[Rfam]
RNA sequence: AAGACUAUACUUUCAGGGAUCAUUUCUAUAGUUCGUUACUAGAGAAGUUUCUCUGAACGUGUAGAGCACCCGAAACCACGAGGAGGAGAUAAAGCGUUCUCUUCUGAGCGUGAAGUCGGCUUUUGGUGUUGCUUCUGCAGCUGCCGUUAGCCAUUGAUGAUCGUUCUUCUUUUCCUUUUAGGAGAUGAAGAGGGAGAGAACGUAAUCUGAGUGGU
Dot-bracket structure: .((..(..(((...((((.....))))..)))..)...))........((...(......)..)).........(((((..............((((((((((((..(((.......((((..(((((((((....))))).))))..)))).........)))..(((.(((((.....))))).)))..)))))))))))).......)))))
Numbered sequence: 001a002a003g004a005c006u007a008u009a010c011u012u013u014c015a016g017g018g019a020u021c022a023u024u025u026c027u028a029u030a031g032u033u034c035g036u037u038a039c040u041a042g043a044g045a046a047g048u049u050u051c052u053c054u055g056a057a058c059g060u061g062u063a064g065a066g067c068a069c070c071c072g073a074a075a076c077c078a079c080g081a082g083g084a085g086g087a088g089a090u091a092a093a094g095c096g097u098u099c100u101c102u103u104c105u106g107a108g109c110g111u112g113a114a115g116u117c118g119g120c121u122u123u124u125g126g127u128g129u130u131g132c133u134u135c136u137g138c139a140g141c142u143g144c145c146g147u148u149a150g151c152c153a154u155u156g157a158u159g160a161u162c163g164u165u166c167u168u169c170u171u172u173u174c175c176u177u178u179u180a181g182g183a184g185a186u187g188a189a190g191a192g193g194g195a196g197a198g199a200a201c202g203u204a205a206u207c208u209g210a211g212u213g214g215u
Stems, first nucleotide, its partner, number of pairs: 002040002006035001009032003015027004049065002054061001075215005094203012108164003118152004124146004128141005167189003171185005
This 215-nucleotide RNA sequence from Bos taurus belongs to the Rfam family "Small nucleolar RNA U3". Clan: U3 clan. Rfam's curators put it in the seed alignment. Rfam describes the family as follows. Small nucleolar RNAs (snoRNAs) are involved in the processing and modification of rRNA in the nucleolus. There are two main classes of snoRNAs: the box C/D class, and the box H/ACA class. U3 snoRNA is a member of the box C/D class. Indeed, the box C/D element is a subset of the six short sequence elements found in all U3 snoRNAs, namely boxes A, A', B, C, C', and D. The U3 snoRNA secondary structure is characterised by a small 5' domain (with boxes A and A'), and a larger 3' domain (with boxes B, C, C', and D), the two domains being linked by a single-stranded hinge. The family's consensus secondary structure is taken from published work. A reference for the family is Zwieb (1997), "The uRNA database", Nucleic Acids Res.